[Rfam]
RNA: Gag/pol translational readthrough site
Organism: Fukomys damarensis
RNA sequence: UAGGGGGGACGGGGCUCGGAGCCCCUCCCCGAGCCCAGGGUAACCCUAACUGUGGAGGGGCA
Numbered sequence: 001u002a003g004g005g006g007g008g009a010c011g012g013g014g015c016u017c018g019g020a021g022c023c024c025c026u027c028c029c030c031g032a033g034c035c036c037a038g039g040g041u042a043a044c045c046c047u048a049a050c051u052g053u054g055g056a057g058g059g060g061c062a
Stems, first nucleotide, its partner, number of pairs: 008041001010039001012036004016031001018029002022060006